[Rfam]
RNA sequence: GUCGGUUUGUAAAGCAGAGCCGAAUAUGCGAGCAGUUUUAGUAAAGCAGUCUUCAGUUCAAGCGUUAUCUUAGAUAUCUCUUCUUCCUGACUCCUUCCUGAGUGCCUCAUAAAUUCUGUGGACAAACCAUUUCGCCCUAUGUGGCUUGUAAUUGAAUGAAGGAUAGACAAAUGUCUAACAAAAUGACUGGUUUAGUAAAAUGGUUCAACGCUGAGAAAGGUUUCGGUUUUAUUUCUCCAACCGACGGCAGCAAAGACGUUUUCGUACACUUCUCUGCGAUCCAGAACAACGGCUUUAAGACCCUCGAAGAAGGUCAGAAAGUUGAGUUCUCUAUCGAGAAUGGCCAGAAAGGCCCAGCAGCUGCUAACGUAACUGCUAUCUAAGCGACUUUCUCGCGACGGAAUGUUAAGGCUUAGCCUGAACCCUCGGUCACGAAACGCUAACAAAAACCCGCCUUGUGCGGGUUUUUGUGU
Numbered sequence: 001g002u003c004g005g006u007u008u009g010u011a012a013a014g015c016a017g018a019g020c021c022g023a024a025u026a027u028g029c030g031a032g033c034a035g036u037u038u039u040a041g042u043a044a045a046g047c048a049g050u051c052u053u054c055a056g057u058u059c060a061a062g063c064g065u066u067a068u069c070u071u072a073g074a075u076a077u078c079u080c081u082u083c084u085u086c087c088u089g090a091c092u093c094c095u096u097c098c099u100g101a102g103u104g105c106c107u108c109a110u111a112a113a114u115u116c117u118g119u120g121g122a123c124a125a126a127c128c129a130u131u132u133c134g135c136c137c138u139a140u141g142u143g144g145c146u147u148g149u150a151a152u153u154g155a156a157u158g159a160a161g162g163a164u165a166g167a168c169a170a171a172u173g174u175c176u177a178a179c180a181a182a183a184u185g186a187c188u189g190g191u192u193u194a195g196u197a198a199a200a201u202g203g204u205u206c207a208a209c210g211c212u213g214a215g216a217a218a219g220g221u222u223u224c225g226g227u228u229u230u231a232u233u234u235c236u237c238c239a240a241c242c243g244a245c246g247g248c249a250g251c252a253a254a255g256a257c258g259u260u261u262u263c264g265u266a267c268a269c270u271u272c273u274c275u276g277c278g279a280u281c282c283a284g285a286a287c288a289a290c291g292g293c294u295u296u297a298a299g300a301c302c303c304u305c306g307a308a309g310a311a312g313g314u315c316a317g318a319a320a321g322u323u324g325a326g327u328u329c330u331c332u333a334u335c336g337a338g339a340a341u342g343g344c345c346a347g348a349a350a351g352g353c354c355c356a357g358c359a360g361c362u363g364c365u366a367a368c369g370u371a372a373c374u375g376c377u378a379u380c381u382a383a384g385c386g387a388c389u390u391u392c393u394c395g396c397g398a399c400g401g402a403a404u405g406u407u408a409a410g411g412c413u414u415a416g417c418c419u420g421a422a423c424c425c426u427c428g429g430u431c432a433c434g435a436a437a438c439g440c441u442a443a444c445a446a447a448a449a450c451c452c453g454c455c456u457u458g459u460g461c462g463g464g465u466u467u468u469u470g471u472g473u
Base pairs, nucleotide, nucleotide: 004021005020006018007017008016009015027239028238031236032235034233045230046229049228051226052225053220054219057218058217065214066213067212069210071208073206074205076204078203079202083173085171088169089168096162097161099159101157104123106121107120134145135144136143175190176189177188242336243335244334246332247331255263256262268322269321270320271319273318274317275316276315277313280307281306283304284303290299341356342355343354357376358375359374360373365372444470445469446468447467448466449465450464451463452462453461454460